[Rfam]
RNA sequence: CUACCGGCGUCGAGAGGUGACGGGAUGCGCGCUCAGAAGUCAGCCGAGGCCAUAGUAGGUGCCAGCACGGGCCGAAGGGC
Numbered sequence: 001c002u003a004c005c006g007g008c009g010u011c012g013a014g015a016g017g018u019g020a021c022g023g024g025a026u027g028c029g030c031g032c033u034c035a036g037a038a039g040u041c042a043g044c045c046g047a048g049g050c051c052a053u054a055g056u057a058g059g060u061g062c063c064a065g066c067a068c069g070g071g072c073c074g075a076a077g078g079g080c
Stems, first nucleotide, its partner, number of pairs: 001027001004023003008019004040047002049080003058073003062069001

Shown here is an 80-nucleotide RNA from Burkholderiales bacterium PBB5, a member of the family "Group II catalytic intron D1-D4-1". From the family's description: Group II introns are found in rRNA, tRNA and mRNA of organelles in fungi, plants and protists, and also in mRNA in bacteria. The family has 237 seed sequences and 2,508 matches in Rfam 15.1. Its family is annotated with Group II intron splicing in the Gene Ontology. A search with the family's covariance model found it, with a score of 60 bits.